[Rfam]
RNA sequence: AUCCCAGUGCAGAGGUUUUACGUGUAUCAGUGAGGAUUCGUCCGAGAUCACGUUUUUGCUAGUUGAAAACUACAACCUGACCGCUCUUGAUCAGCUCCGCAAGGACUGGUUGAGGAAUUUUUGGAGCCCAUCGCAAU
Number, nucleotide and partner (000 for none) at each position: 001a000002u000003c000004c000005c000006a000007g000008u000009g000010c000011a000012g000013a000014g000015g000016u000017u000018u000019u000020a053021c052022g051023u050024g049025u000026a048027u047028c046029a000030g000031u000032g000033a000034g043035g042036a041037u000038u000039c000040g000041u036042c035043c034044g000045a000046g028047a027048u026049c024050a023051c022052g021053u020054u000055u000056u000057u000058g000059c000060u000061a000062g000063u000064u000065g000066a000067a000068a000069a000070c000071u000072a000073c000074a000075a000076c000077c000078u000079g000080a000081c000082c000083g000084c000085u115086c114087u113088u112089g111090a110091u109092c108093a107094g106095c000096u104097c103098c000099g000100c000101a000102a000103g097104g096105a000106c094107u093108g092109g091110u090111u089112g088113a087114g086115g085116a000117a000118u000119u000120u000121u000122u000123g000124g000125a000126g000127c000128c000129c000130a137131u136132c000133g000134c000135a000136a131137u130